Rfam assigns this 105-nucleotide RNA from Corynebacterium renale to the family "mraW RNA".
RNA sequence: CAAGCAGGUGCAUGUAAGGACUCUGCUCGAUGGGACGCUCUGGUGUACUUCCCCGAUAUCAGAGUUAUGACAUCGAGUAGGGCCCUAUAUGCACUUUUAGCAUGG
Numbered sequence: 001c002a003a004g005c006a007g008g009u010g011c012a013u014g015u016a017a018g019g020a021c022u023c024u025g026c027u028c029g030a031u032g033g034g035a036c037g038c039u040c041u042g043g044u045g046u047a048c049u050u051c052c053c054c055g056a057u058a059u060c061a062g063a064g065u066u067a068u069g070a071c072a073u074c075g076a077g078u079a080g081g082g083c084c085c086u087a088u089a090u091g092c093a094c095u096u097u098u099a100g101c102a103u104g105g
Stems, first nucleotide, its partner, number of pairs: 010092007018085002021082012035068001037065010

Annotation: The base pairs follow the family's consensus structure, which is taken from published work. A search with the family's covariance model found it, with a score of 54 bits.